U5 spliceosomal RNA: a 120-nucleotide sequence from Auricularia subglabra.
RNA sequence: GGCAGCUGGCGGUCCAGCAUAUCGCAUCACGUUCUCGCCUUUUACUAGAGCAUGCCGUGUCGGGCCGUCACUCAAAAGCUGCUUACAAUAAUUUCUCGCUCCUCAGCGUUGCUCUGAGAC
Numbered sequence: 001g002g003c004a005g006c007u008g009g010c011g012g013u014c015c016a017g018c019a020u021a022u023c024g025c026a027u028c029a030c031g032u033u034c035u036c037g038c039c040u041u042u043u044a045c046u047a048g049a050g051c052a053u054g055c056c057g058u059g060u061c062g063g064g065c066c067g068u069c070a071c072u073c074a075a076a077a078g079c080u081g082c083u084u085a086c087a088a089u090a091a092u093u094u095c096u097c098g099c100u101c102c103u104c105a106g107c108g109u110u111g112c113u114c115u116g117a118g119a120c
Base pairs, nucleotide, nucleotide: 003081004080005079006078009068010067011066012065013064014063015062017060018059019058028054029053031051032050033049034048035047102118103117104116105115106114

From the family's description: U5 RNA is a component of both types of known spliceosome. The precise function of this molecule is unknown, though it is known that the 5' loop is required for splice site selection and p220 binding, and that both the 3' stem-loop and the Sm site are important for Sm protein binding and cap methylation. Rfam links the family to the GO terms spliceosomal tri-snRNP complex assembly and U5 snRNP.